[Rfam]
RNA sequence: AGCUGGUCUGAAGGUAAUGAGUUAUCUCAAUUGAUUGUUCACAGUCAGUUACAGAUCGAACUCCUUGUUCUACUCUUACCCCCUUCUCACUACCUGCACUUGACUAGUCUAAA
Numbered sequence: 001a002g003c004u005g006g007u008c009u010g011a012a013g014g015u016a017a018u019g020a021g022u023u024a025u026c027u028c029a030a031u032u033g034a035u036u037g038u039u040c041a042c043a044g045u046c047a048g049u050u051a052c053a054g055a056u057c058g059a060a061c062u063c064c065u066u067g068u069u070c071u072a073c074u075c076u077u078a079c080c081c082c083c084u085u086c087u088c089a090c091u092a093c094c095u096g097c098a099c100u101u102g103a104c105u106a107g108u109c110u111a112a113a
Stems, first nucleotide, its partner, number of pairs: 002108007010101002014097002016091001018089004043074003047071002
Shown here is a 113-nucleotide RNA from Aotus nancymaae, a member of the family "Y RNA". The base pairs follow the family's consensus structure, which is taken from published work. On this family, see Teunissen et al., Nucleic Acids Res 2000: "Conserved features of Y RNAs: a comparison of experimentally derived secondary structures". The source organism's lineage runs through Eukaryota, Gnathostomata, Tetrapoda, Theria and Aotus.